[Rfam]
RNA: Soft rot Enterobacteriaceae Rev 39 5'UTR
RNA sequence: AAAUGUUGUGUAAGUGCCCCUAACUAUGUUAACUCUGUAGGCAUUACUUCGAACACGUAAAAGAAUUGAAUAACACAUGAAAGACCUUCUACAAGUGAUUAGCCUGGUUGUGAUUAGCGUGGUGGUGAUUAUUAACCUACCGCGCGGGGCUACACUUGGAGAAAUAAAGGCUUAAAAAUCAAGCCUAUAAUCCGAAAAACCCCCGCACCGAAAGGUCCGGGGGUUUUUUUUUUGACCAGGCAAAAUAUCAGUAAAUCCACAAGGAACAAACAAUGAACAGUAGCAUAAAAUUCUGUUGUUCCGGUCAGGA
Numbered sequence: 001a002a003a004u005g006u007u008g009u010g011u012a013a014g015u016g017c018c019c020c021u022a023a024c025u026a027u028g029u030u031a032a033c034u035c036u037g038u039a040g041g042c043a044u045u046a047c048u049u050c051g052a053a054c055a056c057g058u059a060a061a062a063g064a065a066u067u068g069a070a071u072a073a074c075a076c077a078u079g080a081a082a083g084a085c086c087u088u089c090u091a092c093a094a095g096u097g098a099u100u101a102g103c104c105u106g107g108u109u110g111u112g113a114u115u116a117g118c119g120u121g122g123u124g125g126u127g128a129u130u131a132u133u134a135a136c137c138u139a140c141c142g143c144g145c146g147g148g149g150c151u152a153c154a155c156u157u158g159g160a161g162a163a164a165u166a167a168a169g170g171c172u173u174a175a176a177a178a179u180c181a182a183g184c185c186u187a188u189a190a191u192c193c194g195a196a197a198a199a200c201c202c203c204c205g206c207a208c209c210g211a212a213a214g215g216u217c218c219g220g221g222g223g224u225u226u227u228u229u230u231u232u233u234g235a236c237c238a239g240g241c242a243a244a245a246u247a248u249c250a251g252u253a254a255a256u257c258c259a260c261a262a263g264g265a266a267c268a269a270a271c272a273a274u275g276a277a278c279a280g281u282a283g284c285a286u287a288a289a290a291u292u293c294u295g296u297u298g299u300u301c302c303g304g305u306c307a308g309g310a
Stems, first nucleotide, its partner, number of pairs: 005033004015022002038072002042068001044065002047063003050057002085264003090259001094252001097249001098246003102241006109119003121141005127136001129134001145158004163191001169186002172183002194229012207216003265297004270292001273286003